The record is a 109-nucleotide RNA sequence, which matches "EGFOA RNA" in Rfam. The sequence is in the family's curated seed alignment.
RNA sequence: GGCUUCCCAGAUUUUGUCCCGUCGUAGAUGGUAGGCAGUCAAAAUUCGUGAUUGAAUGGUUAGUAAAGCUACACCUGGGUGACCGAACACUAUUGUUUGAAUGACUGUA
Numbered sequence: 001g002g003c004u005u006c007c008c009a010g011a012u013u014u015u016g017u018c019c020c021g022u023c024g025u026a027g028a029u030g031g032u033a034g035g036c037a038g039u040c041a042a043a044a045u046u047c048g049u050g051a052u053u054g055a056a057u058g059g060u061u062a063g064u065a066a067a068g069c070u071a072c073a074c075c076u077g078g079g080u081g082a083c084c085g086a087a088c089a090c091u092a093u094u095g096u097u098u099g100a101a102u103g104a105c106u107g108u109a
Stems, first nucleotide, its partner, number of pairs: 006079005021074002024072004035108007044057004058084005
Dot-bracket structure: .....[[[[[..........[[.[[[[.......(((((((..((((......))))(((((......]]]]]]]]]]]))))).................))))))).